[Rfam]
RNA sequence: GGAAGUGUGUGUCAGGUGAUGGCACAACUGAACAUUGAUCGUACAUUGAUUUAGUGCAGAUCUGCUCAGUAUAGUGUUAUCACGUGGUUUCUAGUAGCCAAAGCGGAACUUCCCGAUGACUUGGCUCUCGGUAGAGAUCCGCUUCUGGGCUCCUCGAAUCACCGCGGCUGUUUCCAAAUUGGAGUACUCUCCCUCUGUAAUUUCGUCACUUCCAUUACUCGGCACUACACGCUACCGUAGUCUGCCUUCUUUUUUA
Numbered sequence: 001g002g003a004a005g006u007g008u009g010u011g012u013c014a015g016g017u018g019a020u021g022g023c024a025c026a027a028c029u030g031a032a033c034a035u036u037g038a039u040c041g042u043a044c045a046u047u048g049a050u051u052u053a054g055u056g057c058a059g060a061u062c063u064g065c066u067c068a069g070u071a072u073a074g075u076g077u078u079a080u081c082a083c084g085u086g087g088u089u090u091c092u093a094g095u096a097g098c099c100a101a102a103g104c105g106g107a108a109c110u111u112c113c114c115g116a117u118g119a120c121u122u123g124g125c126u127c128u129c130g131g132u133a134g135a136g137a138u139c140c141g142c143u144u145c146u147g148g149g150c151u152c153c154u155c156g157a158a159u160c161a162c163c164g165c166g167g168c169u170g171u172u173u174c175c176a177a178a179u180u181g182g183a184g185u186a187c188u189c190u191c192c193c194u195c196u197g198u199a200a201u202u203u204c205g206u207c208a209c210u211u212c213c214a215u216u217a218c219u220c221g222g223c224a225c226u227a228c229a230c231g232c233u234a235c236c237g238u239a240g241u242c243u244g245c246c247u248u249c250u251u252u253u254u255u256a
Stems, first nucleotide, its partner, number of pairs: 001213007016083005028069003033064002037062004041057004221246003224241005

Overview: Arthropod 7SK RNA: a 256-nucleotide RNA sequence from Nezara viridula. Pairs were carried over by alignment from the consensus structure, which is taken from published work. NCBI's taxonomy places the organism under Eukaryota, Metazoa, Altocrustacea, Pentatomoidea, Nezara. The family's RNA type in Rfam is non-coding RNA gene. A reference for the family is Gruber et al. (2008), "Arthropod 7SK RNA", Mol Biol Evol. The family is grouped with related families in Rfam's "7SK clan".